This 95-nucleotide RNA sequence from Streptomyces gardneri belongs to the Rfam family "che1 RNA". The family's RNA type in Rfam is small RNA. NCBI's taxonomy places the organism under Bacteria, Bacillati, Actinomycetota, Kitasatosporales, Streptomyces.
RNA sequence: UGGACAGGGGGGUUCCCGCUCUCACCGAACGGGGCCUGUCCAAUCCGGUCACGCGCAAAGCGUGGCUCAUGGUUGUCGCUCGGGGGUGAUCGCCG
Numbered sequence: 001u002g003g004a005c006a007g008g009g010g011g012g013u014u015c016c017c018g019c020u021c022u023c024a025c026c027g028a029a030c031g032g033g034g035c036c037u038g039u040c041c042a043a044u045c046c047g048g049u050c051a052c053g054c055g056c057a058a059a060g061c062g063u064g065g066c067u068c069a070u071g072g073u074u075g076u077c078g079c080u081c082g083g084g085g086g087u088g089a090u091c092g093c094c095g
Base pairs, nucleotide, nucleotide: 001042002041003040004039005038006037007036008035014034015033016032017031018030020028047067048066049065050064051063052062053061054060